[Rfam]
RNA: Bacterial RNase P class A
Organism: Acidimicrobiia bacterium
RNA sequence: CGAGUUCGCCAGGCGACCGCGGUGGAAGCACCGAGGAAAGUCCGGACUCCACAGGGCAAGGUGCUGGGUACUCCCAGGCGGGGCGACCCGACGGAAAGUGCCGCAGAGAACAGACCGCCGAUGGCCCCACGGGGCACAGGCAAGGGUGAAACGGUGGGGUAAGAGCCCACCAGCGAUCCGGGUGACCGGGUCGGCUCGGCAAACCCCACCCGGAGCAAGGCCACGCAGGGACCAGAUUGCCCGUCUAAUGGUCCCGGGUAGGCCGCAUGAGGUCACGGGUAACCGUGAUCCCAGAUGGAUGGUCGCCCGGGGUUGUUCCCACGACCCCUGACAGAAUCCGGCUUAUCGGCGGACUCGCACU
Number, nucleotide and partner (000 for none) at each position: 001c357002g356003a355004g354005u353006u352007c351008g350009c349010c348011a346012g307013g306014c305015g304016a303017c302018c301019g000020c033021g032022g031023u030024g029025g000026a000027a000028g000029c024030a023031c022032c021033g020034a000035g000036g000037a000038a344039a343040g342041u000042c341043c340044g339045g338046a337047c215048u214049c213050c212051a000052c000053a000054g242055g241056g240057c239058a000059a000060g210061g209062u208063g207064c077065u076066g075067g074068g073069u000070a000071c000072u000073c068074c067075c066076a065077g064078g092079c090080g089081g088082g087083g000084c000085g000086a000087c082088c081089c080090g079091a000092c078093g206094g205095a000096a000097a000098g204099u203100g200101c199102c198103g000104c000105a000106g000107a000108g000109a000110a000111c000112a000113g000114a000115c145116c144117g141118c140119c139120g000121a000122u138123g137124g135125c134126c133127c132128c000129a000130c000131g000132g127133g126134g125135c124136a000137c123138a122139g119140g118141c117142a000143a000144g116145g115146g000147u000148g000149a000150a000151a000152c000153g171154g170155u169156g168157g167158g166159g000160u000161a000162a000163g000164a000165g000166c158167c157168c156169a155170c154171c153172a000173g195174c193175g192176a191177u190178c189179c188180g187181g186182g000183u000184g000185a000186c181187c180188g179189g178190g177191u176192c175193g174194g000195c173196u000197c000198g102199g101200c100201a000202a000203a099204c098205c094206c093207c063208a062209c061210c060211c000212g050213g049214a048215g047216c000217a000218a000219g264220g263221c262222c261223a000224c000225g000226c000227a000228g255229g254230g253231a252232c251233c250234a000235g245236a244237u243238u000239g057240c056241c055242c054243g237244u236245c235246u000247a000248a000249u000250g233251g232252u231253c230254c229255c228256g000257g000258g000259u000260a000261g222262g221263c220264c219265g000266c000267a000268u000269g000270a000271g290272g289273u288274c287275a286276c285277g284278g283279g000280u000281a000282a000283c278284c277285g276286u275287g274288a273289u272290c271291c000292c000293a000294g000295a000296u000297g000298g000299a000300u000301g018302g017303u016304c015305g014306c013307c012308c000309g000310g000311g000312g000313u000314u000315g000316u000317u000318c000319c000320c000321a000322c000323g000324a000325c000326c000327c000328c000329u000330g000331a000332c000333a000334g000335a000336a000337u046338c045339c044340g043341g042342c040343u039344u038345a000346u011347c000348g010349g009350c008351g007352g006353a005354c004355u003356c002357g001358c000359a000360c000361u000